Shown here is a 210-nucleotide sequence from Rhodobacteraceae bacterium 63075, a member of the family "permuted transfer-messenger RNA". Bacterial tmRNA, also known as 10Sa RNA or SsrA, is named for its dual tRNA and mRNA-like properties. Its role is to liberate the mRNA from a stalled ribosome. The base pairs follow the family's consensus structure, which is taken from published work. The family's RNA type in Rfam is non-coding RNA gene. The match comes from Rfam's covariance-model search (146 bits). Lineage of the source: Bacteria > Pseudomonadati > Pseudomonadota > Rhodobacterales > Paracoccaceae.
Nucleotides: 210
Stems, first nucleotide, its partner, number of pairs: 001132005013121004025110002029107003035051005052092007133148003
Number, partner (000 for none) and nucleotide at each position: 001132g002131g003130a004129c005128a006000u007000a008000a009000a010000c011000g012000c013121g014120c015119u016118c017000g018000u019000a020000a021000u022000a023000a024000g025110c026109g027000g028000a029107u030106c031105g032000g033000a034000c035051c036050c037049g038048g039047g040000g041000g042000c043000g044000g045000u046000a047039c048038c049037c050036g051035g052092c053091g054090g055089c056088u057087c058086c059000a060000c061000c062000a063000a064000u065000c066000a067000u068000c069000c070000u071000u072000c073000g074000u075000u076000u077000g078000a079000g080000g081000a082000u083000c084000a085000c086058g087057g088056g089055g090054c091053c092052g093000a094000a095000a096000c097000a098000g099000g100000a101000u102000c103000g104000a105031c106030g107029g108000a109026c110025g111000u112000c113000u114000a115000a116000a117000g118016g119015g120014g121013u122000u123000a124000g125000c126000u127000u128005u129004g130003u131002c132001u133148c134147g135146g136000c137000u138000g139000u140000c141000u142000g143000c144000c145000a146135c147134c148133g149000u150000u151000a152000c153000c154000g155000g156000c157000g158000a159000a160000a161000a162000a163000a164000g165000u166000a167000c168000a169000a170000u171000u172000g173000c174000a175000a176000a177000c178000g179000a180000c181000a182000a183000u184000c185000g186000u187000g188000c189000u190000c191000c192000g193000g194000u195000u196000g197000c198000a199000g200000u201000u202000g203000c204000u205000g206000c207000g208000u209000a210000a